[Rfam]
RNA sequence: AUGCCCAUCGGGGCUGUGGAUACCUGGUUUUAAUAAU
Numbered sequence: 001a002u003g004c005c006c007a008u009c010g011g012g013g014c015u016g017u018g019g020a021u022a023c024c025u026g027g028u029u030u031u032a033a034u035a036a037u
Stems, first nucleotide, its partner, number of pairs: 003014004017026003